RNA sequence: CUGCAUCCUUAGUAAACCCCCUAGUUGCUAAUCGUAGCCUCUGGGACAAGGAAGGAUGCUAGAUCAAACUAGAGAUCCAAAGCUGAGAGUCUUGUCAGUGUCUCUUGGUUAUUUCAGCUCUGGGACAGUC
Numbered sequence: 001c002u003g004c005a006u007c008c009u010u011a012g013u014a015a016a017c018c019c020c021c022u023a024g025u026u027g028c029u030a031a032u033c034g035u036a037g038c039c040u041c042u043g044g045g046a047c048a049a050g051g052a053a054g055g056a057u058g059c060u061a062g063a064u065c066a067a068a069c070u071a072g073a074g075a076u077c078c079a080a081a082g083c084u085g086a087g088a089g090u091c092u093u094g095u096c097a098g099u100g101u102c103u104c105u106u107g108g109u110u111a112u113u114u115c116a117g118c119u120c121u122g123g124g125a126c127a128g129u130c
Base pairs, nucleotide, nucleotide: 003059004058005057006056009051010050020045021044022043023042024041027038028037063129064128069123070122071121072120073119081110082109083108084107085106086105087104089102093098
RNA: Small nucleolar RNA SNORA14
Organism: Hucho hucho